The record is a 68-nucleotide RNA from Oceanobacillus iheyensis, which matches "Bacillaceae-1 RNA" in Rfam.
Nucleotides: 068
Base pairs, nucleotide, nucleotide: 011051012050013049015047016046017045027039028038029037030036055067056066057065058064
Number, partner (000 for none) and nucleotide at each position: 001000a002000a003000a004000a005000g006000g007000a008000g009000a010000c011051u012050u013049u014000c015047u016046g017045c018000u019000a020000a021000a022000a023000u024000c025000g026000c027039c028038c029037a030036u031000g032000u033000c034000c035000u036030g037029u038028g039027g040000c041000u042000a043000a044000a045017g046016c047015a048000a049013a050012a051011a052000u053000c054000a055067c056066c057065a058064c059000a060000u061000c062000c063000u064058g065057u066056g067055g068000a
Source information:
The sequence is in the family's curated seed alignment. The family's RNA type in Rfam is small RNA. The family's consensus secondary structure is taken from published work.